Rfam assigns this 218-nucleotide RNA from Streptomyces minutiscleroticus to the family "Actinobacteria sRNA Ms_IGR-5". On this family, see Li et al., RNA 2013: "Identification of small RNAs in Mycobacterium smegmatis using heterologous Hfq".
RNA sequence: ACACGAGAAGGGAGGUGGUUCGGCAGAUGUAUGAAUACCGGACGCGUGAGGUGGCUGCGGGCUAGCGGCUCGUCACCACACCGAGUGCGGUGCCGGACCAGCGCGUGAUCGGAGCGCGCAGCCGGCCCAAUCCCAAGCAGUCACCCGGCCCGUGGGCUCGCCGGUACGUCCGGCCGGCUCUCCUCCUCGGAGGGGACCUGAGCCCACGGGCUGUCCGC
Numbered sequence: 001a002c003a004c005g006a007g008a009a010g011g012g013a014g015g016u017g018g019u020u021c022g023g024c025a026g027a028u029g030u031a032u033g034a035a036u037a038c039c040g041g042a043c044g045c046g047u048g049a050g051g052u053g054g055c056u057g058c059g060g061g062c063u064a065g066c067g068g069c070u071c072g073u074c075a076c077c078a079c080a081c082c083g084a085g086u087g088c089g090g091u092g093c094c095g096g097a098c099c100a101g102c103g104c105g106u107g108a109u110c111g112g113a114g115c116g117c118g119c120a121g122c123c124g125g126c127c128c129a130a131u132c133c134c135a136a137g138c139a140g141u142c143a144c145c146c147g148g149c150c151c152g153u154g155g156g157c158u159c160g161c162c163g164g165u166a167c168g169u170c171c172g173g174c175c176g177g178c179u180c181u182c183c184u185c186c187u188c189g190g191a192g193g194g195g196a197c198c199u200g201a202g203c204c205c206a207c208g209g210g211c212u213g214u215c216c217g218c
Stems, first nucleotide, its partner, number of pairs: 015058005060127004065122002068119002071116003146213013160178006